The family of this 119-nucleotide RNA sequence from Neisseria shayeganii is "Y RNA-like". In Deinococcus radiodurans Rsr is tethered via Y RNA to the exoribonuclease PNPase and channels single-stranded RNA into the PNPase cavity. Rsr and Y RNA enhance degradation of structured RNAs by PNPase. This role could be conserved, as Rsr and ncRNAs called YrlA and YrlB (Y RNA like) also associate with PNPase in an evolutionary distant bacterium Salmonella Typhimurium. It is annotated as a small RNA. Pairs were carried over by alignment from the consensus structure, which is taken from published work. Taxonomically the source falls in Neisseria shayeganii (Bacteria, Neisseriales, Neisseriaceae, Neisseria). The literature on the family includes a 2013 paper in Cell by Chen et al., "An RNA degradation machine sculpted by Ro autoantigen and noncoding RNA".
RNA sequence: CCGGCAAAUGCCGGAGGAAUUACAUGGGUCGCGGGUUCAAGUCCCGCCUUUGCCGGUAGGCAAAGUAGCUCAGCAGGGUAGAGCGGUGGAUUCAUUUCUCCCAGUUUAGUUGUUGGCUG
Numbered sequence: 001c002c003g004g005c006a007a008a009u010g011c012c013g014g015a016g017g018a019a020u021u022a023c024a025u026g027g028g029u030c031g032c033g034g035g036u037u038c039a040a041g042u043c044c045c046g047c048c049u050u051u052g053c054c055g056g057u058a059g060g061c062a063a064a065g066u067a068g069c070u071c072a073g074c075a076g077g078g079u080a081g082a083g084c085g086g087u088g089g090a091u092u093c094a095u096u097u098c099u100c101c102c103a104g105u106u107u108a109g110u111u112g113u114u115g116g117c118u119g
Stems, first nucleotide, its partner, number of pairs: 002115006013101007023088003031047005038078001048065006068084004